[Rfam]
RNA sequence: AAGGCAUGCUGGAGUCCCGCAGCGGCGCCUGGGGUGUCGGAUCAAUGCGGCGUUGGCCGCGAGGGUUCGCAAGAUGGUUCAUGGUCCUCAAGGACAUGAAUCCAACACUCGACACCGUAGAAACCAUCGGGGCUUUA
Numbered sequence: 001a002a003g004g005c006a007u008g009c010u011g012g013a014g015u016c017c018c019g020c021a022g023c024g025g026c027g028c029c030u031g032g033g034g035u036g037u038c039g040g041a042u043c044a045a046u047g048c049g050g051c052g053u054u055g056g057c058c059g060c061g062a063g064g065g066u067u068c069g070c071a072a073g074a075u076g077g078u079u080c081a082u083g084g085u086c087c088u089c090a091a092g093g094a095c096a097u098g099a100a101u102c103c104a105a106c107a108c109u110c111g112a113c114a115c116c117g118u119a120g121a122a123a124c125c126a127u128c129g130g131g132g133c134u135u136u137a
Base pairs, nucleotide, nucleotide: 012135013134014133015132016131017130018129019128023117024116025115030111031110032109033108
Dot-bracket structure: ...........((((((((...(((....((((..........................................................................))))...)))..........))))))))..
A member of the RNA family "ybhL leader" from Sinorhizobium sp. BG8, 137 nucleotides long. The family's RNA type in Rfam is cis-regulatory leader. The pairing is the family consensus, mapped onto this sequence. A search with the family's covariance model found it, with a score of 57 bits. Rfam's curators write: This family is a putative regulatory RNA structure that is found upstream of an uncharacterized membrane protein in alpha-proteobacteria. Rfam links the family to the GO term regulation of gene expression.